U4 spliceosomal RNA: a 136-nucleotide sequence from Tetrahymena thermophila. A reference for the family is Zhan et al. (2018), "Structures of the human pre-catalytic spliceosome and its precursor spliceosome", Cell Res. NCBI's taxonomy places the organism under Eukaryota, Alveolata, Tetrahymenina, Tetrahymenidae, Tetrahymena thermophila. The base pairs follow the family's consensus structure, which is taken from published work. It scores 86 bits against the family's covariance model. From the family's description: U4 small nuclear RNA (U4 snRNA) is a component of the major U2-dependent spliceosome.
RNA sequence: AUCCUCGCGCAGAGGGGCAUUAUAGUAGCAAGUGAAGUAUUAACUGAUGCACUAUUAUUGCUAAUUGAGAACUAUGUUCGAUAAAUUGACUUUAAGUGUAAACUUAUUGGCAUAAUUUCUGAAGGGUCUUAUGGAC
Numbered sequence: 001a002u003c004c005u006c007g008c009g010c011a012g013a014g015g016g017g018c019a020u021u022a023u024a025g026u027a028g029c030a031a032g033u034g035a036a037g038u039a040u041u042a043a044c045u046g047a048u049g050c051a052c053u054a055u056u057a058u059u060g061c062u063a064a065u066u067g068a069g070a071a072c073u074a075u076g077u078u079c080g081a082u083a084a085a086u087u088g089a090c091u092u093u094a095a096g097u098g099u100a101a102a103c104u105u106a107u108u109g110g111c112a113u114a115a116u117u118u119c120u121g122a123a124g125g126g127u128c129u130u131a132u133g134g135a136c
Base pairs, nucleotide, nucleotide: 022055023054024053025052026051028050029049030048036045037044038043087112088111090109093106094105095104096103097102126136127135128134129133